[Rfam]
RNA sequence: AGAUGAGUGAAUCACCCCGCCCGCGGGGCUCUGCGGGCGACUCCGGCGCGUGGCCUCCCCAGUCACGAACCGGCCGUGCCUUCGCGCACGCAACCGGGGCAUCCGGCUCCGGAUUUCCUCACCGAUCGGA
Numbered sequence: 001a002g003a004u005g006a007g008u009g010a011a012u013c014a015c016c017c018c019g020c021c022c023g024c025g026g027g028g029c030u031c032u033g034c035g036g037g038c039g040a041c042u043c044c045g046g047c048g049c050g051u052g053g054c055c056u057c058c059c060c061a062g063u064c065a066c067g068a069a070c071c072g073g074c075c076g077u078g079c080c081u082u083c084g085c086g087c088a089c090g091c092a093a094c095c096g097g098g099g100c101a102u103c104c105g106g107c108u109c110c111g112g113a114u115u116u117c118c119u120c121a122c123c124g125a126u127c128g129g130a
Stems, first nucleotide, its partner, number of pairs: 004121004009117002018039009043073004049067006076089004094112007122129002